[Rfam]
RNA: TPP riboswitch aptamer (THI element)
Organism: Actinomadura rubrisoli
RNA sequence: ACCGAUAUCCGCGGGAGCUCGGGCCGACCGGGCUGAGAGGGCGACCUCCAAGGCGUCGCCGACCGCAUGAACCUGUCCGGGUAAUGCCGGCGUAGGGAGCGUGUCGCAUGACGUC
Numbered sequence: 001a002c003c004g005a006u007a008u009c010c011g012c013g014g015g016a017g018c019u020c021g022g023g024c025c026g027a028c029c030g031g032g033c034u035g036a037g038a039g040g041g042c043g044a045c046c047u048c049c050a051a052g053g054c055g056u057c058g059c060c061g062a063c064c065g066c067a068u069g070a071a072c073c074u075g076u077c078c079g080g081g082u083a084a085u086g087c088c089g090g091c092g093u094a095g096g097g098a099g100c101g102u103g104u105c106g107c108a109u110g111a112c113g114u115c
Base pairs, nucleotide, nucleotide: 006103007102008101010099011066012065013064014063017033018032019031020030021029040060041059042058043057044056072096073095074094075093077090078089079088080087